The family of this 99-nucleotide RNA sequence from Streptosporangiaceae bacterium NEAU-GS5 is "Glycine riboswitch aptamer". From the family's description: This family represents the bacterial glycine riboswitch. It scores 40 bits against the family's covariance model.
RNA sequence: CGACUCUGGAAAGCGGCCGCGCCGGCCAGGCGCGUCCCACCGACGGUGCAAGCCUCCCUGACCAGGGGUGAAGCUCUCAGGUUCCAUGACAGAGGGGGA
Numbered sequence: 001c002g003a004c005u006c007u008g009g010a011a012a013g014c015g016g017c018c019g020c021g022c023c024g025g026c027c028a029g030g031c032g033c034g035u036c037c038c039a040c041c042g043a044c045g046g047u048g049c050a051a052g053c054c055u056c057c058c059u060g061a062c063c064a065g066g067g068g069u070g071a072a073g074c075u076c077u078c079a080g081g082u083u084c085c086a087u088g089a090c091a092g093a094g095g096g097g098g099a
Base pairs, nucleotide, nucleotide: 001097004094005093006092007091008090015037016036018034019033020032021031022030039082040081041080042078043077046076048074052069053068054067055066056065
Dot-bracket structure: (..(((((......((.(((((.......))))).)).(((((..(.(...(((((........)))))....).))).))).......)))))..)..